[Rfam]
RNA sequence: GCGUAACAUUCCGCACGAUUUAGUAACAAGAGGACACACACUUUGGACAGUCACAGUCGAUACCGAUCGCAAUCUUUUUUCUAAAUCUCGUCAUUUACUUAUCGGCGAGAUUUCGC
Numbered sequence: 001g002c003g004u005a006a007c008a009u010u011c012c013g014c015a016c017g018a019u020u021u022a023g024u025a026a027c028a029a030g031a032g033g034a035c036a037c038a039c040a041c042u043u044u045g046g047a048c049a050g051u052c053a054c055a056g057u058c059g060a061u062a063c064c065g066a067u068c069g070c071a072a073u074c075u076u077u078u079u080u081c082u083a084a085a086u087c088u089c090g091u092c093a094u095u096u097a098c099u100u101a102u103c104g105g106c107g108a109g110a111u112u113u114c115g116c
Base pairs, nucleotide, nucleotide: 001014002013003012005010026082028080030077031076032075033074034073043066044065045064046063050061051060052059083113084112085111086110087109088108089107090106091105092104
RNA: Aggregatibacter sRNA 54